[Rfam]
RNA sequence: UCGUCCUGCUCGUGAUCGUCUUCUCAACCUUCACCUGCAGGCGGAAUGACGAAGAACCCCCGUGAGGACGUGACUCACGGGGGUUCUUC
Numbered sequence: 001u002c003g004u005c006c007u008g009c010u011c012g013u014g015a016u017c018g019u020c021u022u023c024u025c026a027a028c029c030u031u032c033a034c035c036u037g038c039a040g041g042c043g044g045a046a047u048g049a050c051g052a053a054g055a056a057c058c059c060c061c062g063u064g065a066g067g068a069c070g071u072g073a074c075u076c077a078c079g080g081g082g083g084u085u086c087u088u089c
Base pairs, nucleotide, nucleotide: 001044002043003042005041006040007039008038009037012034013033014032015031018028019027051089052088053087054086055085056084057083058082059081060080061079062078063077064076065075066074
sodF sRNA: an 89-nucleotide RNA sequence from Streptomyces purpureus.
NCBI's taxonomy places the organism under Bacteria, Bacillati, Actinomycetes, Streptomycetaceae, Streptomyces.
The match comes from Rfam's covariance-model search (94 bits).